[Rfam]
RNA sequence: UGGGAGAAUCUGUAAAGCUCAGGAGGGAUAGCGCCAUGGAUGAAUAUUAUAACACUAUUGCUUCGUUUAGUCAUCUGUAGCGCUAUCCAUCCUGAGUUUCAUAGCUUCUUCAU
Numbered sequence: 001u002g003g004g005a006g007a008a009u010c011u012g013u014a015a016a017g018c019u020c021a022g023g024a025g026g027g028a029u030a031g032c033g034c035c036a037u038g039g040a041u042g043a044a045u046a047u048u049a050u051a052a053c054a055c056u057a058u059u060g061c062u063u064c065g066u067u068u069a070g071u072c073a074u075c076u077g078u079a080g081c082g083c084u085a086u087c088c089a090u091c092c093u094g095a096g097u098u099u100c101a102u103a104g105c106u107u108c109u110u111c112a113u
Base pairs, nucleotide, nucleotide: 010104016098017097018096019095020094021093022092023091024090026088027087028086029085030084031083032082033081034080

The family of this 113-nucleotide RNA sequence from Nicotiana attenuata is "MIR390 microRNA precursor family". On this family, see Gustafson et al., Nucleic Acids Res 2005: "ASRP: the Arabidopsis Small RNA Project Database". Rfam links the family to the GO terms RISC complex and miRNA-mediated post-transcriptional gene silencing. The source organism's lineage runs through Eukaryota, Viridiplantae, Gunneridae, Nicotianeae and Nicotiana.